[Rfam]
RNA: Selenocysteine transfer RNA
RNA sequence: GGGAUUGGAUAGGGAACUGGUGUCCCUCUAGGUCUUCAAAACCUCCAGGGAGGCUCGUGCAGUCUCCGGUGGGUUCGAUUCCCACGCAAUCCC
Numbered sequence: 001g002g003g004a005u006u007g008g009a010u011a012g013g014g015a016a017c018u019g020g021u022g023u024c025c026c027u028c029u030a031g032g033u034c035u036u037c038a039a040a041a042c043c044u045c046c047a048g049g050g051a052g053g054c055u056c057g058u059g060c061a062g063u064c065u066c067c068g069g070u071g072g073g074u075u076c077g078a079u080u081c082c083c084a085c086g087c088a089a090u091c092c093c
Stems, first nucleotide, its partner, number of pairs: 001093007008085001011027005017022001030044004049067005070084004